[Rfam]
RNA sequence: GGCUGUUCUGAGUGCAGUGGUGUUUACAACUACUUGAUCACAACCAGUUACAGAUCUCUUUGUUCCUUCCAGUUCCACUGCUUCACUUGACUAGCCUAAA
Numbered sequence: 001g002g003c004u005g006u007u008c009u010g011a012g013u014g015c016a017g018u019g020g021u022g023u024u025u026a027c028a029a030c031u032a033c034u035u036g037a038u039c040a041c042a043a044c045c046a047g048u049u050a051c052a053g054a055u056c057u058c059u060u061u062g063u064u065c066c067u068u069c070c071a072g073u074u075c076c077a078c079u080g081c082u083u084c085a086c087u088u089g090a091c092u093a094g095c096c097u098a099a100a
Stems, first nucleotide, its partner, number of pairs: 001096005007090002010088002014084001016079005028064003032060001
RNA: Y RNA
Organism: Saimiri boliviensis